[Rfam]
RNA sequence: CUCGGGGGGGAGGGAGGUCCCUCAGCCCAGAUUGUGAGAAGGCGCAGGCCAGGCCGAGGGACCCUACCGGUGCACA
Numbered sequence: 001c002u003c004g005g006g007g008g009g010g011a012g013g014g015a016g017g018u019c020c021c022u023c024a025g026c027c028c029a030g031a032u033u034g035u036g037a038g039a040a041g042g043c044g045c046a047g048g049c050c051a052g053g054c055c056g057a058g059g060g061a062c063c064c065u066a067c068c069g070g071u072g073c074a075c076a
Stems, first nucleotide, its partner, number of pairs: 004073001006071001009068002014065001016063008025054003030049001032047005
RNA: mir-9193 microRNA precursor family